Guanidine-II riboswitch aptamer (mini-ykkC): a 47-nucleotide RNA from Desulfovibrio sp. An276. Simpler in structure and has fewer highly conserved nucleotide positions than the ykkC-yxkD leader. Despite this each of its two stem-loop structures directly bind free guanidine. Therefore, mini-ykkC RNA motif represents a distinct class of guanidine-sensing RNAs. Its crystal structure was also determined. A reference for the family is Weinberg et al. (2007), "Identification of 22 candidate structured RNAs in bacteria using the CMfinder comparative genomics pipeline", Nucleic Acids Res. A search with the family's covariance model found it, with a score of 39 bits. Lineage of the source: Bacteria > Pseudomonadati > Thermodesulfobacteriota > Desulfovibrionaceae > Desulfovibrio. The base pairs follow the family's consensus structure, which is taken from published work.
RNA sequence: CUGCGGGGACGACCCUGUAGUCUCAAAAGCAAACGGGGACGACCUCA
Numbered sequence: 001c002u003g004c005g006g007g008g009a010c011g012a013c014c015c016u017g018u019a020g021u022c023u024c025a026a027a028a029g030c031a032a033a034c035g036g037g038g039a040c041g042a043c044c045u046c047a
Base pairs, nucleotide, nucleotide: 001020002019003018004017005016006015007014008013035046036045037044038043